[Rfam]
RNA sequence: GACGAACCACCGCCUAAUCGCCGCGAGGCGAGCCGGGGACCCACGCACCCGGGGUGAAGCCGCGUUCGCGCGGCCGGGCGUGCUUCCCGCCCGAACCCGUCAGCUAACCCGGUCGGCGGCCGAGUGGGAAGAA
Numbered sequence: 001g002a003c004g005a006a007c008c009a010c011c012g013c014c015u016a017a018u019c020g021c022c023g024c025g026a027g028g029c030g031a032g033c034c035g036g037g038g039a040c041c042c043a044c045g046c047a048c049c050c051g052g053g054g055u056g057a058a059g060c061c062g063c064g065u066u067c068g069c070g071c072g073g074c075c076g077g078g079c080g081u082g083c084u085u086c087c088c089g090c091c092c093g094a095a096c097c098c099g100u101c102a103g104c105u106a107a108c109c110c111g112g113u114c115g116g117c118g119g120c121c122g123a124g125u126g127g128g129a130a131g132a133a
Base pairs, nucleotide, nucleotide: 011118012117013116014115018031019030020029021028022027032113033112034111035110036109037108042051052098053097054096060073061072062071063070076092077091078090079089
RNA: c-di-AMP riboswitch aptamer (ydaO/yuaA leader)
Organism: Actinoplanes awajinensis